[Rfam]
The family of this 127-nucleotide RNA sequence from Pelusios castaneus is "Small nucleolar RNA SNORA4".
RNA sequence: CUGCCAAAAGCUUCUUGAUUUGGUGAAGGUUACUAUAACCAAACCACUCAAGCUCUUGGAAAAGUAAAGACCGCACUCCACGAUGGGCUACACAGUUGUAGUUCAUCACUAUAAUGUGGUCAACAAA
Numbered sequence: 001c002u003g004c005c006a007a008a009a010g011c012u013u014c015u016u017g018a019u020u021u022g023g024u025g026a027a028g029g030u031u032a033c034u035a036u037a038a039c040c041a042a043a044c045c046a047c048u049c050a051a052g053c054u055c056u057u058g059g060a061a062a063a064g065u066a067a068a069g070a071c072c073g074c075a076c077u078c079c080a081c082g083a084u085g086g087g088c089u090a091c092a093c094a095g096u097u098g099u100a101g102u103u104c105a106u107c108a109c110u111a112u113a114a115u116g117u118g119g120u121c122a123a124c125a126a127a
Stems, first nucleotide, its partner, number of pairs: 004059004014052004022047001025044001028040004069121001071119005082107011
The family is grouped with related families in Rfam's "SNORA4 clan". Rfam's curators write: ACA4 is a member of the H/ACA class of snoRNA that guide the sites of modification of uridines to pseudouridines. Pairs were carried over by alignment from the consensus structure, which was predicted with PFOLD.